[Rfam]
RNA sequence: CACAUAUUGGCUUUAAGGGCGGUCGGCUAAUCUCCCGGAAGGGAGGUGAUGCCUGUGGAGGUUAAAGACGCUUUGACGCUUAUGAUCAGUUUCGGCUCGAUGAUUAUCACGCUGCUGACUCUGGUUGUGACCAUCGUCAUCGUGCUUAUCCAAAACAAAAAGAAAUAGACCGCCCUCGAUAAGGUAAACGGUCUAUUCCAUCGUAAAACCUUUAAGCUGACCGCUCUUACAGCGGAUGUGCAGGAGUCGUGUUACCGCACGGCUC
Numbered sequence: 001c002a003c004a005u006a007u008u009g010g011c012u013u014u015a016a017g018g019g020c021g022g023u024c025g026g027c028u029a030a031u032c033u034c035c036c037g038g039a040a041g042g043g044a045g046g047u048g049a050u051g052c053c054u055g056u057g058g059a060g061g062u063u064a065a066a067g068a069c070g071c072u073u074u075g076a077c078g079c080u081u082a083u084g085a086u087c088a089g090u091u092u093c094g095g096c097u098c099g100a101u102g103a104u105u106a107u108c109a110c111g112c113u114g115c116u117g118a119c120u121c122u123g124g125u126u127g128u129g130a131c132c133a134u135c136g137u138c139a140u141c142g143u144g145c146u147u148a149u150c151c152a153a154a155a156c157a158a159a160a161a162g163a164a165a166u167a168g169a170c171c172g173c174c175c176u177c178g179a180u181a182a183g184g185u186a187a188a189c190g191g192u193c194u195a196u197u198c199c200a201u202c203g204u205a206a207a208a209c210c211u212u213u214a215a216g217c218u219g220a221c222c223g224c225u226c227u228u229a230c231a232g233c234g235g236a237u238g239u240g241c242a243g244g245a246g247u248c249g250u251g252u253u254a255c256c257g258c259a260c261g262g263c264u265c
Stems, first nucleotide, its partner, number of pairs: 001240005007220006014178001016176004021170001023168001028049001030047001032045005057149001059147004071084001094141002190199002221235004244265009
BsrG: a 265-nucleotide sequence from Paenibacillus tyrphae. Rfam describes the family as follows. bsrE, bsrG and bsrH pair through intermolecular interactions with antisense sRNAs. They form type I toxin/antitoxin system that includes an mRNA encoding for a short, toxic peptide (bsrE, bsrG and bsrH) and an antitoxin that is comprised of an antisense RNA. bsrG encodes a 39-amino-acid toxin, and the 180 nucleotide antisense sRNA called SR4 acts as the antitoxin (they overlap by 123 nucleotides). SR4 interaction with the 3'UTR of bsrG RNA promotes bsrG degradation and inhibits its translation.